[Rfam]
Nucleotides: 073
Stems, first nucleotide, its partner, number of pairs: 001071004009060005022055003030048003
Number, partner (000 for none) and nucleotide at each position: 001071c002070c003069u004068u005000u006000g007000g008000a009060g010059u011058g012057u013056u014000a015000u016000a017000u018000c019000a020000a021000a022055c023054a024053a025000g026000a027000u028000u029000a030048g031047u032046c033000a034000a035000g036000u037000u038000a039000g040000a041000u042000u043000g044000a045000u046032g047031a048030u049000g050000a051000a052000a053024u054023u055022g056013g057012a058011c059010a060009c061000g062000a063000u064000g065000a066000a067000u068004a069003a070002g071001g072000a073000a

Shown here is a 73-nucleotide sequence, a member of the family "RAGATH-18 RNA".